RNA: mir-135 microRNA precursor family
RNA sequence: AUGCCACUGUGCAUUAUGGCUUUUUAUUCCUAUGUGAUGAUAAAAAAAAUGUUCGUGUAGGAAUCGAAGCCAUGUUACACGUGGUGA
Numbered sequence: 001a002u003g004c005c006a007c008u009g010u011g012c013a014u015u016a017u018g019g020c021u022u023u024u025u026a027u028u029c030c031u032a033u034g035u036g037a038u039g040a041u042a043a044a045a046a047a048a049a050u051g052u053u054c055g056u057g058u059a060g061g062a063a064u065c066g067a068a069g070c071c072a073u074g075u076u077a078c079a080c081g082u083g084g085u086g087a
Stems, first nucleotide, its partner, number of pairs: 002086006009080003013076001015074009026064012